[Rfam]
RNA sequence: UCUGACCCUUCGGCUGUGAUGCCCAGCCGCUCGCCCUGACGCACUUCCCCGGCGCCAGGUCGAAGCGGAUGGGGAUCAGAGUCCGAAGGUUCGGCCCGA
Numbered sequence: 001u002c003u004g005a006c007c008c009u010u011c012g013g014c015u016g017u018g019a020u021g022c023c024c025a026g027c028c029g030c031u032c033g034c035c036c037u038g039a040c041g042c043a044c045u046u047c048c049c050c051g052g053c054g055c056c057a058g059g060u061c062g063a064a065g066c067g068g069a070u071g072g073g074g075a076u077c078a079g080a081g082u083c084c085g086a087a088g089g090u091u092c093g094g095c096c097c098g099a
Stems, first nucleotide, its partner, number of pairs: 010086004014081002018077002022073004027068004031063003035059004040054003
RNA: mraW RNA